[Rfam]
RNA sequence: AUGGAGUAUGUCGAAAAUCCAUAAGAGAGUAGGCA
Number, nucleotide and partner (000 for none) at each position: 001a000002u021003g020004g019005a018006g000007u000008a000009u000010g034011u033012c032013g000014a000015a000016a000017a000018u005019c004020c003021a002022u000023a000024a000025g000026a000027g000028a000029g000030u000031a000032g012033g011034c010035a000
This 35-nucleotide RNA belongs to the Rfam family "DUF805b RNA".
Rfam classes the family as a cis-regulatory element.
The family's consensus secondary structure is taken from published work.